The record is a 165-nucleotide sequence from Altericroceibacterium indicum, which matches "Group II catalytic intron D1-D4-3" in Rfam. A search with the family's covariance model found it, with a score of 59 bits. The organism belongs to Altericroceibacterium, within Bacteria. Gene Ontology term of the family: Group II intron splicing.
RNA sequence: AUGGUCGUGAGAACAUGUGCGGAGGACCUGGAGGCAAAACCUGGAAUAGGCGACAAAACCGAGUUGGCUGGCAGAAUCGGAUAACCCUGCAAAAGACGGGAGUGUCCAGUACCACAAGAGGAUUCUGUUAGUUAGGAGGACUAGCUUCAGGUGAAAGCCCGAUGA
Number, nucleotide and partner (000 for none) at each position: 001a016002u015003g014004g000005u012006c011007g000008u000009g000010a000011g006012a005013a000014c003015a002016u001017g000018u000019g000020c000021g000022g000023a000024g000025g000026a000027c000028c164029u000030g000031g000032a000033g000034g158035c157036a000037a000038a000039a152040c151041c150042u149043g148044g147045a000046a000047u143048a142049g141050g000051c000052g000053a000054c000055a000056a000057a000058a000059c139060c138061g000062a000063g000064u000065u000066g000067g132068c131069u130070g000071g128072c127073a126074g125075a124076a123077u122078c000079g107080g106081a105082u104083a000084a000085c100086c099087c098088u000089g000090c000091a000092a000093a000094a000095g000096a000097c000098g087099g086100g085101a000102g000103u000104g082105u081106c080107c079108a000109g000110u000111a000112c000113c000114a000115c000116a000117a000118g000119a000120g000121g000122a077123u076124u075125c074126u073127g072128u071129u000130a069131g068132u067133u000134a000135g000136g000137a000138g060139g059140a000141c049142u048143a047144g000145c000146u000147u044148c043149a042150g041151g040152u039153g000154a000155a000156a000157g035158c034159c000160c000161g000162a000163u000164g028165a000